The family of this 75-nucleotide RNA from Cannabis sativa is "small nucleolar RNA snoR117". The family has 6 seed sequences and 419 matches in Rfam 15.1. By type it is a C/D-box small nucleolar RNA. On this family, see Chen and Wu, Nucleic Acids Res 2009: "Mining small RNA sequencing data: a new approach to identify small nucleolar RNAs in Arabidopsis".
[Rfam]
RNA sequence: GGCCAGUGAUUUUUCCAAAUUUGUCCGUACCAUCUGAUGUCUGAUGUAAUCAUCUUACAAAUCUUUCUGAGGCCU
Numbered sequence: 001g002g003c004c005a006g007u008g009a010u011u012u013u014u015c016c017a018a019a020u021u022u023g024u025c026c027g028u029a030c031c032a033u034c035u036g037a038u039g040u041c042u043g044a045u046g047u048a049a050u051c052a053u054c055u056u057a058c059a060a061a062u063c064u065u066u067c068u069g070a071g072g073c074c075u
Stems, first nucleotide, its partner, number of pairs: 001074004